[Rfam]
RNA: Small nucleolar RNA SNORA44
RNA sequence: CAGCCUGUUCCCAAGGGCUGCGGCUGGUUGUAGCCAUAGGCUCUCCAGCUGCAUGCCAGAGCGACCUGGGGAGGCUUUGACAGCUCAGUGAGCAUAACACCUGCAGCUGCCACUCGCCCUUCCUGUACCC
Number, nucleotide and partner (000 for none) at each position: 001c000002a000003g000004c000005c000006u000007g000008u000009u000010c000011c039012c000013a000014a000015g000016g035017g034018c033019u032020g031021c030022g029023g000024c000025u000026g000027g000028u000029u022030g021031u020032a019033g018034c017035c016036a000037u000038a000039g011040g000041c000042u000043c000044u000045c000046c000047a000048g000049c000050u000051g000052c000053a000054u000055g000056c000057c000058a000059g000060a000061g000062c000063g000064a000065c000066c000067u000068g123069g122070g121071g120072a000073g118074g000075c000076u000077u000078u000079g000080a000081c000082a000083g110084c109085u000086c103087a102088g100089u000090g000091a000092g000093c000094a000095u000096a000097a000098c000099a000100c088101c000102u087103g086104c000105a000106g000107c000108u000109g084110c083111c000112a000113c000114u000115c000116g000117c000118c073119c000120u071121u070122c069123c068124u000125g000126u000127a000128c000129c000130c000